[Rfam]
The family of this 45-nucleotide sequence from Ardeotis kori is "Histone 3' UTR stem-loop". The source organism's lineage runs through Eukaryota, Bilateria, Tetrapoda, Otidiformes and Ardeotis. The family's RNA type in Rfam is cis-regulatory element. A search with the family's covariance model found it, with a score of 35 bits.
RNA sequence: CCAAAGGCUCUUUUAAGAGCCACCACGUUGCACAAGAGGGCUGUG
Numbered sequence: 001c002c003a004a005a006g007g008c009u010c011u012u013u014u015a016a017g018a019g020c021c022a023c024c025a026c027g028u029u030g031c032a033c034a035a036g037a038g039g040g041c042u043g044u045g
Base pairs, nucleotide, nucleotide: 006021007020008019009018010017011016